[Rfam]
Nucleotides: 200
Stems, first nucleotide, its partner, number of pairs: 001060009011051002015046004020041001021039001023038001025036002070136008083124002085120006095114001097112001100110003139195006146188001155181003160176006
Number, partner (000 for none) and nucleotide at each position: 001060c002059c003058c004057a005056g006055c007054g008053g009052u010000a011051g012050u013000c014000a015046g016045c017044u018043g019000c020041c021039c022000a023038u024000u025036g026035c027000u028000g029000c030000u031000c032000a033000g034000u035026g036025c037000u038023g039021g040000g041020g042000u043018c044017g045016g046015u047000g048000u049000u050012a051011u052009g053008c054007c055006g056005c057004u058003g059002g060001g061000a062000g063000a064000g065000a066000a067000a068000c069000a070136c071135g072134c073133u074132g075131c076130c077129g078000a079000g080000u081000u082000g083124c084123u085120c086119c087118u088117g089116g090115c091000a092000c093000c094000g095114c096000c097112g098000g099000g100110g101109c102108u103000g104000u105000u106000c107000u108102a109101g110100u111000g112097c113000u114095g115090g116089c117088c118087a119086g120085g121000c122000u123084g124083g125000g126000u127000u128000u129077c130076g131075g132074c133073a134072g135071c136070g137000c138000u139195c140194u141193g142192c143191a144190u145000g146188c147000u148000a149000g150000a151000g152000a153000g154000u155181g156180g157179a158000g159000g160176g161175a162174c163173u164172c165171c166000u167000g168000c169000a170000u171165g172164g173163a174162g175161u176160c177000a178000g179157u180156c181155c182000u183000g184000g185000a186000u187000u188146g189000g190144a191143u192142g193141c194140a195139g196000a197000c198000a199000g200000c

Annotation
Small nucleolar RNA SNORA74: a 200-nucleotide RNA from Patagioenas fasciata. Its Rfam clan is "SNORA74 clan". By type it is an H/ACA-box small nucleolar RNA. The base pairs follow the family's consensus structure, which was predicted with PFOLD. It scores 104 bits against the family's covariance model. A reference for the family is Ganot et al. (1997), "The family of box ACA small nucleolar RNAs is defined by an evolutionarily conserved secondary structure and ubiquitous sequence elements essential for RNA accumulation", Genes Dev. Its family is annotated with RNA processing and nucleolus in the Gene Ontology. U19 belongs to the H/ACA class of snoRNAs. snoRNAs bind a number of proteins (including dyskerin, Gar1p and Nop10p in the case of the H/ACA class) to form snoRNP complexes. This class are thought to guide the sites of modification of uridines to pseudouridines by forming direct base pairing interactions with substrate RNAs. Targets may include ribosomal and spliceosomal RNAs but the exact functions of many snoRNAs, including U19, are not confirmed. Co-precipitation of U19 snoRNA with RNase MRP RNA suggests that U19 may be involved in pre-rRNA processing.